[Rfam]
Background
Rfam assigns this 74-nucleotide RNA from Ictidomys tridecemlineatus to the family "mir-631 microRNA precursor family". Pairs were carried over by alignment from the consensus structure, which was predicted with RNAalifold.

RNA sequence: AGGGAGUCUGGUUCAACUUAGCCCAGACCUCAGCUGCACAAGCUGAUGGACUGAGCCAGGGAGCCAAGCUCCCU
Numbered sequence: 001a002g003g004g005a006g007u008c009u010g011g012u013u014c015a016a017c018u019u020a021g022c023c024c025a026g027a028c029c030u031c032a033g034c035u036g037c038a039c040a041a042g043c044u045g046a047u048g049g050a051c052u053g054a055g056c057c058a059g060g061g062a063g064c065c066a067a068g069c070u071c072c073c074u
Stems, first nucleotide, its partner, number of pairs: 001074006009066005017060003021056002024053003028049002030046006
Dot-bracket structure: ((((((..(((((...(((.((.(((.((((((((.....)))))).)).))).)).))).)))))..))))))